[Rfam]
RNA sequence: AAUGGGGUUGCCGAAAACCAUCAAAAACGAGUAGGCA
Numbered sequence: 001a002a003u004g005g006g007g008u009u010g011c012c013g014a015a016a017a018c019c020a021u022c023a024a025a026a027a028c029g030a031g032u033a034g035g036c037a
Stems, first nucleotide, its partner, number of pairs: 002021004010036003
RNA: DUF805b RNA